[Rfam]
RNA sequence: CGCUAUAGCGGCGCUAUAGCGCCGCUAUAGCGCGCUAUUUAGAACACUGAAGUUAAUAAAUUGAAUAGAUU
Numbered sequence: 001c002g003c004u005a006u007a008g009c010g011g012c013g014c015u016a017u018a019g020c021g022c023c024g025c026u027a028u029a030g031c032g033c034g035c036u037a038u039u040u041a042g043a044a045c046a047c048u049g050a051a052g053u054u055a056a057u058a059a060a061u062u063g064a065a066u067a068g069a070u071u
Stems, first nucleotide, its partner, number of pairs: 001032004006027009033063002036060001
The family of this 71-nucleotide RNA from Carex littledalei is "Rubella virus 3' cis-acting element". It scores 38 bits against the family's covariance model. This family represents a cis-acting element found at the 3' UTR in the rubella virus. This family contains three conserved step loop structures. Rfam classes the family as a cis-regulatory element. The literature on the family includes a 1999 paper in J Virol by Chen and Frey, "Mutagenic analysis of the 3' cis-acting elements of the rubella virus genome". The family's consensus secondary structure is taken from published work.